The record is an 83-nucleotide RNA from Nyssa sinensis, which matches "mir-156 microRNA precursor family" in Rfam.
A search with the family's covariance model found it, with a score of 70 bits.
Its family is annotated with miRNA-mediated post-transcriptional gene silencing and RISC complex in the Gene Ontology.
About the family: This family represents the plant microRNA (miRNA) precursor mir-156.
Pairs were carried over by alignment from the consensus structure, which was predicted with PFOLD.
RNA sequence: CUGACAGAAGAGAGUGAGCACACAGAGGCAAAUUGUAUGUAUCUAUACCAUUUCUUUUGCGUGCUCACUACUCUUUCCGUCAG
Dot-bracket structure: (((((.(((((((((((((((.(((...............................))).))))))))).))).))).)))))